[Rfam]
RNA sequence: CUUCGAUAAUGGCAAACUUACUGAAAAGUAAGGACGCAAAGCUACGGGUCUAAGGCAGUAUUGCUACGAUCGCCGGGUUACCGAA
Dot-bracket structure: ...........((...((((((....))))))...))..((((.((((((....(((....)))...)))..)))))))......
Numbered sequence: 001c002u003u004c005g006a007u008a009a010u011g012g013c014a015a016a017c018u019u020a021c022u023g024a025a026a027a028g029u030a031a032g033g034a035c036g037c038a039a040a041g042c043u044a045c046g047g048g049u050c051u052a053a054g055g056c057a058g059u060a061u062u063g064c065u066a067c068g069a070u071c072g073c074c075g076g077g078u079u080a081c082c083g084a085a
Stems, first nucleotide, its partner, number of pairs: 012037002017032006040079004045075003048070003055064003

A member of the RNA family "c-di-GMP-I riboswitch aptamer" from Filobacillus milosensis, 85 nucleotides long. The family's consensus secondary structure is taken from published work. Lineage of the source: Bacteria > Bacillati > Bacillota > Bacilli > Filobacillus.